[Rfam]
RNA: Fungal signal recognition particle RNA
RNA sequence: CGGCUGUCAUGGUCAUACUGGUUAGAAGGCACUUGAAAUUUCGCUUUUCACUGUCCCAUUUCCGUCAGAUCCCCCUAGCGUCGCCCAGUGCGAACGCCGCGGUGGCCGCCCACUCGUUCGGGAAACCAACGACUGCUGGUGCGACCCUAAGCAAUGAAGAUCACACUUGAGGGAGGCUCCACUCCGCAGAGAUAUCUUCACCGUCGCGUGGCGUGUUGGAUCACGAUCGCUAGGGGCUUGGGACUGUGAGGAGCGAUGGAGAUGUCGACUCCAAUAUUUUUU
Numbered sequence: 001c002g003g004c005u006g007u008c009a010u011g012g013u014c015a016u017a018c019u020g021g022u023u024a025g026a027a028g029g030c031a032c033u034u035g036a037a038a039u040u041u042c043g044c045u046u047u048u049c050a051c052u053g054u055c056c057c058a059u060u061u062c063c064g065u066c067a068g069a070u071c072c073c074c075c076u077a078g079c080g081u082c083g084c085c086c087a088g089u090g091c092g093a094a095c096g097c098c099g100c101g102g103u104g105g106c107c108g109c110c111c112a113c114u115c116g117u118u119c120g121g122g123a124a125a126c127c128a129a130c131g132a133c134u135g136c137u138g139g140u141g142c143g144a145c146c147c148u149a150a151g152c153a154a155u156g157a158a159g160a161u162c163a164c165a166c167u168u169g170a171g172g173g174a175g176g177c178u179c180c181a182c183u184c185c186g187c188a189g190a191g192a193u194a195u196c197u198u199c200a201c202c203g204u205c206g207c208g209u210g211g212c213g214u215g216u217u218g219g220a221u222c223a224c225g226a227u228c229g230c231u232a233g234g235g236g237c238u239u240g241g242g243a244c245u246g247u248g249a250g251g252a253g254c255g256a257u258g259g260a261g262a263u264g265u266c267g268a269c270u271c272c273a274a275u276a277u278u279u280u281u282u
Stems, first nucleotide, its partner, number of pairs: 002014003020279002023276002028272002033267001035266002038263001039260002043254009053244004073236002076232005081226003085219008094209004099204004104146001107143003110139003114132005120127002147151001155200007166191003173184003
Dot-bracket structure: .(((.......))).....((.((...((...(.((.(((..(((((((((.((((................((.((((((((.((((((((.((((.((((.(..((((((.(((((.((....)))))))....))).)))..)(...)...(((((((....(((....(((......)))....)))..))))))))))).))))..))))))))....))).)))))..))....)))).)))))))))....))..).)))...))..)).))...